[Rfam]
RNA sequence: AGGAAAGAGAGGGACUCGAACCCUCGGUACAAAAAUUUGUACAAUGGAUUAG
Numbered sequence: 001a002g003g004a005a006a007g008a009g010a011g012g013g014a015c016u017c018g019a020a021c022c023c024u025c026g027g028u029a030c031a032a033a034a035a036u037u038u039g040u041a042c043a044a045u046g047g048a049u050u051a052g
Stems, first nucleotide, its partner, number of pairs: 009025005027042006
Shown here is a 52-nucleotide RNA sequence from Trifolium medium, a member of the family "Plastid-psbl-rps4 3UTR RNA". The base pairs follow the family's consensus structure, which was predicted with LocARNA. The match comes from Rfam's covariance-model search (69 bits). Plastid psbl-rps4-psbC is a non-coding RNA (ncRNA) present in plastids. It is compose of two short stem-loops in tandem in the terminal 3 prime untranslate region (3UTR) mostly in psbl and rps4 seed plants genes. The family's RNA type in Rfam is cis-regulatory element.